[Rfam]
RNA sequence: UCAGACUCCGCUCCGGACAAAUGAACCGAUGAAGCAUUGUUCGGAGC
Numbered sequence: 001u002c003a004g005a006c007u008c009c010g011c012u013c014c015g016g017a018c019a020a021a022u023g024a025a026c027c028g029a030u031g032a033a034g035c036a037u038u039g040u041u042c043g044g045a046g047c
Base pairs, nucleotide, nucleotide: 011046012045013044014043015042017040018039019038
RNA: uup RNA